The record is a 126-nucleotide RNA, which matches "LOOT RNA" in Rfam.
RNA sequence: AACCUAACCCUGUUAAAAUUAUUAGCAGGUAUGGUUAAAAAACCUUACGAAUAAAAACGGCUUCAUUAGUCGGUCCUAUUCGUAAGGUCUGCUUGGGAAACUUUGCAGGAUGCUCGUAAGAGUAUC
Numbered sequence: 001a002a003c004c005u006a007a008c009c010c011u012g013u014u015a016a017a018a019u020u021a022u023u024a025g026c027a028g029g030u031a032u033g034g035u036u037a038a039a040a041a042a043c044c045u046u047a048c049g050a051a052u053a054a055a056a057a058c059g060g061c062u063u064c065a066u067u068a069g070u071c072g073g074u075c076c077u078a079u080u081c082g083u084a085a086g087g088u089c090u091g092c093u094u095g096g097g098a099a100a101c102u103u104u105g106c107a108g109g110a111u112g113c114u115c116g117u118a119a120g121a122g123u124a125u126c
Stems, first nucleotide, its partner, number of pairs: 001036004009029007043087011056074001058072005089108004095102002109126006
The family's consensus secondary structure is taken from published work.